Overview:
Shown here is a 190-nucleotide RNA, a member of the family "RT-15 RNA". The base pairs follow the family's consensus structure, which is taken from published work. The family's RNA type in Rfam is small RNA.

[Rfam]
RNA sequence: UCGCGCUUGUCGUCCGGCCGUCACGGCAGCCGGGCCAACGCGCAUAGAUAAUCUGGUCGCACCGCUGCCCCACAAGGGCACCGACAGGCGCAUCACAGAUAUCACCGAAUGACUUCGGAGUGAUCUGGCGCAGUUUCCCGGCUGAAUUCCAAAGGCCUCGGCCGGGCGACGUGAGUUGUGCGAUAUAGCG
Numbered sequence: 001u002c003g004c005g006c007u008u009g010u011c012g013u014c015c016g017g018c019c020g021u022c023a024c025g026g027c028a029g030c031c032g033g034g035c036c037a038a039c040g041c042g043c044a045u046a047g048a049u050a051a052u053c054u055g056g057u058c059g060c061a062c063c064g065c066u067g068c069c070c071c072a073c074a075a076g077g078g079c080a081c082c083g084a085c086a087g088g089c090g091c092a093u094c095a096c097a098g099a100u101a102u103c104a105c106c107g108a109a110u111g112a113c114u115u116c117g118g119a120g121u122g123a124u125c126u127g128g129c130g131c132a133g134u135u136u137c138c139c140g141g142c143u144g145a146a147u148u149c150c151a152a153a154g155g156c157c158u159c160g161g162c163c164g165g166g167c168g169a170c171g172u173g174a175g176u177u178g179u180g181c182g183a184u185a186u187a188g189c190g
Base pairs, nucleotide, nucleotide: 004042005041006040012035013034014033015032016031017030018029020027021026057183058182059181060180061179062178063083064082066080067079068078069077070076088131089130090129091128096127097126098125099124102123103122105118106117107116108115109114134169135168137166138165139164140163141162142161143160144159145158149155150154
Dot-bracket structure: ...(((.....(((((((.((....)).)))))))....)))..............((((((((.(((((.....))))).))....((((....((((..((.(((((....)))))...))))))))))..((.(((((((((...((...))..))))))))).))........)))))).......